[Rfam]
RNA: Nitrogen stress-induced RNA 8
Organism: Nostoc sp. PCC 7107
RNA sequence: AUCAACACUACAAGAAUGACUUUGGUUAAAACACUAAGUAGAGGAUGAAUACUGUUCUUAUUGCUUAAAUCAUGAGUAUUCUUGACAAUCUACUAAGUUUAAUUUGUAUGAUUCUUUUAUAAUCCAAGGUGCAUCGCCACUUUCAAGCUAUUGCGACGGGUGAAAGCCCGUC
Number, nucleotide and partner (000 for none) at each position: 001a112002u111003c110004a109005a000006c000007a089008c000009u087010a000011c000012a000013a083014g082015a000016a080017u078018g077019a000020c000021u074022u000023u072024g071025g070026u069027u000028a065029a000030a000031a062032c000033a000034c000035u060036a059037a058038g057039u000040a055041g000042a053043g000044g000045a000046u000047g000048a000049a000050u000051a000052c000053u042054g000055u040056u000057c038058u037059u036060a035061u000062u031063g000064c000065u028066u000067a000068a000069a026070u025071c024072a023073u000074g021075a000076g000077u018078a017079u000080u016081c000082u014083u013084g000085a000086c000087a009088a000089u007090c000091u000092a000093c000094u000095a000096a000097g000098u000099u000100u000101a000102a000103u000104u000105u000106g000107u000108a000109u004110g003111a002112u001113u000114c000115u000116u000117u000118u000119a152120u000121a149122a000123u147124c000125c000126a143127a142128g141129g140130u139131g138132c000133a000134u000135c000136g000137c000138c131139a130140c129141u128142u127143u126144c000145a000146a000147g123148c000149u121150a000151u000152u119153g000154c000155g172156a171157c170158g169159g168160g167161u000162g000163a000164a000165a000166g000167c160168c159169c158170g157171u156172c155